[Rfam]
RNA sequence: GCGGAGACGGAAGUUUCCGUUCACUCCUCACACCACACUCCGCCUAAACCUAAUUGGUUUAGGCGGUU
Numbered sequence: 001g002c003g004g005a006g007a008c009g010g011a012a013g014u015u016u017c018c019g020u021u022c023a024c025u026c027c028u029c030a031c032a033c034c035a036c037a038c039u040c041c042g043c044c045u046a047a048a049c050c051u052a053a054u055u056g057g058u059u060u061a062g063g064c065g066g067u068u
Stems, first nucleotide, its partner, number of pairs: 001020008041065010

Notes:
A member of the RNA family "Cyanobacterial functional RNA 1" from Leptothoe spongobia, 68 nucleotides long. For this family Rfam cites "A motif-based search in bacterial genomes identifies the ortholog of the small RNA Yfr1 in all lineages of cyanobacteria" (Voss et al., BMC Genomics, 2007). The match comes from Rfam's covariance-model search (51 bits). NCBI's taxonomy places the organism under Bacteria, Bacillati, Cyanophyceae, Nodosilineales, Leptothoe spongobia.